This 126-nucleotide RNA belongs to the Rfam family "RtT RNA". Rfam links the family to the GO term cellular response to amino acid starvation. Rfam's curators write: This family represents a bacterial cis-regulatory element known as RtT RNA. The exact function of RtT is unknown although it is thought that it may be involved in changing the cellular response in relation to amino acid starvation.

RNA sequence: GCUAUCUGCGAUUCGGGCAGGGUUCGAGCAUGCAGCAGGUUCGAGUCGAACGUAGUGAGACAACGGAGCCGUUUGCGGCGACGGCCCGAAGGGCGAGCACAGCGAGUCAUCCUGCACGACCCACCA
Numbered sequence: 001g002c003u004a005u006c007u008g009c010g011a012u013u014c015g016g017g018c019a020g021g022g023u024u025c026g027a028g029c030a031u032g033c034a035g036c037a038g039g040u041u042c043g044a045g046u047c048g049a050a051c052g053u054a055g056u057g058a059g060a061c062a063a064c065g066g067a068g069c070c071g072u073u074u075g076c077g078g079c080g081a082c083g084g085c086c087c088g089a090a091g092g093g094c095g096a097g098c099a100c101a102g103c104g105a106g107u108c109a110u111c112c113u114g115c116a117c118g119a120c121c122c123a124c125c126a
Stems, first nucleotide, its partner, number of pairs: 015117001017115005023109001033095001036092001040090004047057002064083002068079004